[Rfam]
RNA sequence: GAUUGAUGACAAGGGAGCUUGCACGGAAGCGGGCUGAGAGUGGGCUGACACCGCCCAGACCUAUAACCUGAUUUGGAUAAUGCCAACGUAGGGAUGCGUUUAUAAGGGAUU
Numbered sequence: 001g002a003u004u005g006a007u008g009a010c011a012a013g014g015g016a017g018c019u020u021g022c023a024c025g026g027a028a029g030c031g032g033g034c035u036g037a038g039a040g041u042g043g044g045c046u047g048a049c050a051c052c053g054c055c056c057a058g059a060c061c062u063a064u065a066a067c068c069u070g071a072u073u074u075g076g077a078u079a080a081u082g083c084c085a086a087c088g089u090a091g092g093g094a095u096g097c098g099u100u101u102a103u104a105a106g107g108g109a110u111u
Stems, first nucleotide, its partner, number of pairs: 006099003012062003017034005041057005067092004073086004
Rfam assigns this 111-nucleotide sequence from Dorea sp. CAG:317 to the family "TPP riboswitch aptamer (THI element)". A search with the family's covariance model found it, with a score of 58 bits. Taxonomically the source falls in Dorea (Bacteria, Bacillota, Clostridia, Lachnospiraceae).